[Rfam]
RNA: Purine riboswitch aptamer
Organism: Paenibacillus anaericanus
RNA sequence: AAAGUAAUUCGCAACAUUUUUCGUAUAACCUCGCAGCCAGAUAUGCAAGAAAAGGGCGAGGGUUUCUACAGGAAGCCUUAUCUUCCUAACUACGAUAAUGAGGAUUGAGUCA
Numbered sequence: 001a002a003a004g005u006a007a008u009u010c011g012c013a014a015c016a017u018u019u020u021u022c023g024u025a026u027a028a029c030c031u032c033g034c035a036g037c038c039a040g041a042u043a044u045g046c047a048a049g050a051a052a053a054g055g056g057c058g059a060g061g062g063u064u065u066c067u068a069c070a071g072g073a074a075g076c077c078u079u080a081u082c083u084u085c086c087u088a089a090c091u092a093c094g095a096u097a098a099u100g101a102g103g104a105u106u107g108a109g110u111c112a
Stems, first nucleotide, its partner, number of pairs: 018098002021095005029061006070087006